Record summary:
Small nucleolar RNA snoR99: a 96-nucleotide sequence from Zea mays. Rfam links the family to the GO terms nucleolus and RNA processing. The family has 9 seed sequences and 733 matches in Rfam 15.1.
RNA sequence: GUGCCUUUUGGAUGAACAGGUCCCUAGCAUGUACUACCUUAUUAUUACUGUGAGCUGAUAUUGUGUUUUUAGCUAAUCAUUAAGGUUGGGAUGUUU
Dot-bracket structure: ....................................(((.((.......((.(((((............))))).)).......)).)))......